This 179-nucleotide RNA from Lawsonibacter hominis belongs to the Rfam family "Lysine riboswitch aptamer". The source organism's lineage runs through Bacteria, Bacillota, Clostridia, Eubacteriales and Lawsonibacter. Riboswitches are metabolite binding domains within certain messenger RNAs that serve as precision sensors for their corresponding targets.

[Rfam]
RNA sequence: UGCAUGGAUAGAGGCGCGGAGCACAAGGUAACAGGCACGAUGGCAAGGGCGGGCGAGCCCGAUGCGGCCUGUGAAUGUGUGCGCCGCCGAAGGGGGACGCGUACCGUACAACCCUCCCCCUGAGCCGUGGGCCCAGCGCUUACGGAUUGUCAUGAGUAACAUGAAGCGCUAUUUAUGAC
Number, nucleotide and partner (000 for none) at each position: 001u000002g000003c000004a000005u000006g174007g173008a172009u171010a170011g169012a000013g000014g000015c000016g087017c086018g085019g084020a000021g082022c081023a080024c079025a000026a000027g000028g000029u000030a000031a072032c071033a070034g069035g068036c067037a000038c066039g000040a000041u000042g000043g000044c000045a000046a000047g000048g000049g000050c000051g000052g000053g000054c000055g000056a000057g000058c000059c000060c000061g000062a000063u000064g000065c000066g038067g036068c035069c034070u033071g032072u031073g000074a000075a000076u000077g000078u000079g024080u023081g022082c021083g000084c019085c018086g017087c016088c000089g000090a000091a121092g120093g119094g118095g117096g116097a115098c000099g113100c000101g000102u110103a000104c000105c000106g000107u000108a000109c000110a102111a000112c000113c099114c000115u097116c096117c095118c094119c093120c092121u091122g148123a147124g000125c145126c144127g143128u142129g141130g140131g139132c138133c000134c000135a000136g000137c000138g132139c131140u130141u129142a128143c127144g126145g125146a000147u123148u122149g000150u164151c163152a162153u161154g160155a000156g000157u000158a000159a000160c154161a153162u152163g151164a150165a000166g000167c000168g000169c011170u010171a009172u008173u007174u006175a000176u000177g000178a000179c000